Overview
A member of the RNA family "tRNA" from Schistosoma bovis, 72 nucleotides long. Rfam's curators write: Transfer RNA (tRNA) molecules are approximately 80 nucleotides in length. Their secondary structure includes four short double-helical elements and three loops (D, anti-codon, and T loops). Further hydrogen bonds mediate the characteristic L-shaped molecular structure. tRNAs have two regions of fundamental functional importance: the anti-codon, which is responsible for specific mRNA codon recognition, and the 3' end, to which the tRNAs corresponding amino acid is attached (by aminoacyl-tRNA synthetases). tRNAs cope with the degeneracy of the genetic code in two manners: having more than one tRNA (with a specific anti-codon) for a particular amino acid; and 'wobble' base-pairing, i.e. permitting non-standard base-pairing at the 3rd anti-codon position. Rfam links the family to the GO term triplet codon-amino acid adaptor activity. The base pairs follow the family's consensus structure, which is taken from published work. The family's RNA type in Rfam is transfer RNA.
RNA sequence: GUCGCUGUGGUCUAGUGGUUAGGACAUUGCGUUGUGGCCGCACUGACCCAGGUUCGUAUCCUGGCAGCGACA
Numbered sequence: 001g002u003c004g005c006u007g008u009g010g011u012c013u014a015g016u017g018g019u020u021a022g023g024a025c026a027u028u029g030c031g032u033u034g035u036g037g038c039c040g041c042a043c044u045g046a047c048c049c050a051g052g053u054u055c056g057u058a059u060c061c062u063g064g065c066a067g068c069g070a071c072a
Stems, first nucleotide, its partner, number of pairs: 001071007010025004028042004048064005